[Rfam]
RNA sequence: GGAACCCAUCGACCGAACCCUCACGGCAGGAGCGGGGGACCCAGGUAAGUCGCCGGGCCGGAGCACCGGACGUCACCGGACGUCAGGCCGCGCCGGAACGGCUAGGGGUGAAGCCGCGCCCUUCGGGGCCGGCCGGGCACCUUUCCGCCCGAACCCGACAGCUCACCUCGCAGGCGGCGGAGAGGAAGA
Numbered sequence: 001g002g003a004a005c006c007c008a009u010c011g012a013c014c015g016a017a018c019c020c021u022c023a024c025g026g027c028a029g030g031a032g033c034g035g036g037g038g039a040c041c042c043a044g045g046u047a048a049g050u051c052g053c054c055g056g057g058c059c060g061g062a063g064c065a066c067c068g069g070a071c072g073u074c075a076c077c078g079g080a081c082g083u084c085a086g087g088c089c090g091c092g093c094c095g096g097a098a099c100g101g102c103u104a105g106g107g108g109u110g111a112a113g114c115c116g117c118g119c120c121c122u123u124c125g126g127g128g129c130c131g132g133c134c135g136g137g138c139a140c141c142u143u144u145c146c147g148c149c150c151g152a153a154c155c156c157g158a159c160a161g162c163u164c165a166c167c168u169c170g171c172a173g174g175c176g177g178c179g180g181a182g183a184g185g186a187a188g189a
Stems, first nucleotide, its partner, number of pairs: 013174002019030002032171006042105001106156003114132003135150004
RNA: c-di-AMP riboswitch aptamer (ydaO/yuaA leader)